[Rfam]
RNA: chrB-b RNA
RNA sequence: UGGGGACACGCAGGCUCCCCUCCCGGCCUGAUCGUUCAGGUCGUUUCGAAGACGCCGUCGCGUCCAAGUUCUGC
Number, nucleotide and partner (000 for none) at each position: 001u000002g020003g019004g018005g017006a016007c000008a000009c000010g074011c073012a072013g071014g070015c000016u006017c005018c004019c003020c002021u000022c000023c000024c000025g000026g000027c000028c000029u000030g000031a000032u000033c000034g000035u000036u000037c000038a000039g000040g000041u000042c000043g000044u000045u000046u000047c000048g000049a000050a000051g064052a063053c062054g061055c060056c000057g000058u000059c000060g055061c054062g053063u052064c051065c000066a000067a000068g000069u000070u014071c013072u012073g011074c010